[Rfam]
SAM (S-adenosyl methionine) riboswitch aptamer: a 115-nucleotide RNA sequence from Kocuria rhizophila.
RNA sequence: GAUGACGAGUUCCGGCGCGUAGCUCUGGCUGGCCGGACGGCAACCCUCUCCCGUAGCGGGGUGCCCCAGAUGACCAUCCGGCCGCGGUUCGAACCGAUCACGGCAAGUGCGGUUU
Numbered sequence: 001g002a003u004g005a006c007g008a009g010u011u012c013c014g015g016c017g018c019g020u021a022g023c024u025c026u027g028g029c030u031g032g033c034c035g036g037a038c039g040g041c042a043a044c045c046c047u048c049u050c051c052c053g054u055a056g057c058g059g060g061g062u063g064c065c066c067c068a069g070a071u072g073a074c075c076a077u078c079c080g081g082c083c084g085c086g087g088u089u090c091g092a093a094c095c096g097a098u099c100a101c102g103g104c105a106a107g108u109g110c111g112g113u114u115u
Base pairs, nucleotide, nucleotide: 001078002077003076004075009038011037012036013035014034015033016032021030022029039065040064041063044061045060046059048056049055081104082103083102084101086099087098088097089096